Description:
This 272-nucleotide sequence from Coemansia guatemalensis belongs to the Rfam family "Protozoan signal recognition particle RNA". Rfam 15.1 lists 111 matches to the family in 100 species. By type it is a non-coding RNA gene. Rfam links the family to the GO terms signal recognition particle, endoplasmic reticulum targeting and SRP-dependent cotranslational protein targeting to membrane, signal sequence recognition. The literature on the family includes a 2002 paper in Nucleic Acids Res by Regalia et al., "Prediction of signal recognition particle RNA genes".
RNA sequence: CGUCCUGUAAUCCGUGCAGGAUGCCUGUGAGAUUCACGGGCCUGGACUUUGUGUGGCUUUGGCGCCGUUUGCCCGUCAUUAGGCGGGGCCUAUUCUUGGAGAAUGGCUUGGAGGUGUCCCCAGAGAUUCGCAGUCUGUCAUUGAUCUCCUGGCUGAAGCCGGGGCGAUCGAGGACGUUGAAAACUGUCAUAAUGCGUUAGGCCGUAACCGGAACAGCGAAAAGACAGUGCUGCAUAAUUGUCUUGGGGACUGCACUUCCAUGCUUGCCGGUG
Numbered sequence: 001c002g003u004c005c006u007g008u009a010a011u012c013c014g015u016g017c018a019g020g021a022u023g024c025c026u027g028u029g030a031g032a033u034u035c036a037c038g039g040g041c042c043u044g045g046a047c048u049u050u051g052u053g054u055g056g057c058u059u060u061g062g063c064g065c066c067g068u069u070u071g072c073c074c075g076u077c078a079u080u081a082g083g084c085g086g087g088g089c090c091u092a093u094u095c096u097u098g099g100a101g102a103a104u105g106g107c108u109u110g111g112a113g114g115u116g117u118c119c120c121c122a123g124a125g126a127u128u129c130g131c132a133g134u135c136u137g138u139c140a141u142u143g144a145u146c147u148c149c150u151g152g153c154u155g156a157a158g159c160c161g162g163g164g165c166g167a168u169c170g171a172g173g174a175c176g177u178u179g180a181a182a183a184c185u186g187u188c189a190u191a192a193u194g195c196g197u198u199a200g201g202c203c204g205u206a207a208c209c210g211g212a213a214c215a216g217c218g219a220a221a222a223g224a225c226a227g228u229g230c231u232g233c234a235u236a237a238u239u240g241u242c243u244u245g246g247g248g249a250c251u252g253c254a255c256u257u258c259c260a261u262g263c264u265u266g267c268c269g270g271u272g
Stems, first nucleotide, its partner, number of pairs: 013038004077272003082268006110259008118248006125239003130233005136176004141171006148164003151160003178182001183228006193220001195218003202211003